[Rfam]
c-di-GMP-I riboswitch aptamer: a 99-nucleotide RNA from Desulfoscipio gibsoniae.

RNA sequence: GUUUCACAAAGGCAAACUACAUCGAAAGAUUAGGGCGCAAAGCCAUGGGUCUAAAGCGCUUGAGCUUAUUAAUAGUGCAAUGAUUGCCAGGUUGCGGGA
Number, nucleotide and partner (000 for none) at each position: 001g000002u000003u000004u000005c000006a000007c000008a000009a000010a000011g000012g038013c037014a000015a000016a000017c033018u032019a031020c000021a030022u029023c028024g000025a000026a000027a000028g023029a022030u021031u019032a018033g017034g000035g000036c000037g013038c012039a000040a000041a093042g092043c091044c090045a000046u089047g088048g087049g084050u083051c082052u000053a000054a000055a000056g078057c077058g076059c075060u000061u000062g000063a000064g000065c000066u000067u000068a000069u000070u000071a000072a000073u000074a000075g059076u058077g057078c056079a000080a000081u000082g051083a050084u049085u000086g000087c048088c047089a046090g044091g043092u042093u041094g000095c000096g000097g000098g000099a000
GEMM was predicted in a large-scale screen for bacterial structured RNA regulatory elements. NCBI's taxonomy places the organism under Bacteria, Bacillota, Eubacteriales, Desulfallaceae, Desulfoscipio gibsoniae.